[Rfam]
RNA sequence: GCCUUGUGGUUCCUGGUGACUGCUGUGUUGUGCAGUGCCUCAGGUUUAUAAAUGGGCACAUAUUAACUCUGUAAUUUUUUGCAUGGAGUCCUCCUCAUCAUUAAGAAGAUUCCAUAGCCCGGUUACAGAGACAAGU
Numbered sequence: 001g002c003c004u005u006g007u008g009g010u011u012c013c014u015g016g017u018g019a020c021u022g023c024u025g026u027g028u029u030g031u032g033c034a035g036u037g038c039c040u041c042a043g044g045u046u047u048a049u050a051a052a053u054g055g056g057c058a059c060a061u062a063u064u065a066a067c068u069c070u071g072u073a074a075u076u077u078u079u080u081g082c083a084u085g086g087a088g089u090c091c092u093c094c095u096c097a098u099c100a101u102u103a104a105g106a107a108g109a110u111u112c113c114a115u116a117g118c119c120c121g122g123u124u125a126c127a128g129a130g131a132c133a134a135g136u
Stems, first nucleotide, its partner, number of pairs: 001057004007048002012044005019036005069128001071126006081118002083115004088110003092106002
This 136-nucleotide RNA sequence from Polypterus senegalus belongs to the Rfam family "Small nucleolar RNA SNORA84". A reference for the family is Marker et al. (2002), "Experimental RNomics: identification of 140 candidates for small non-messenger RNAs in the plant Arabidopsis thaliana", Curr Biol. Rfam links the family to the GO terms nucleolus and RNA processing. The match comes from Rfam's covariance-model search (86 bits). Rfam classes the family as an H/ACA-box small nucleolar RNA. The family has 28 seed sequences and 757 matches in Rfam 15.1. Lineage of the source: Eukaryota > Deuterostomia > Cladistia > Polypteriformes > Polypterus.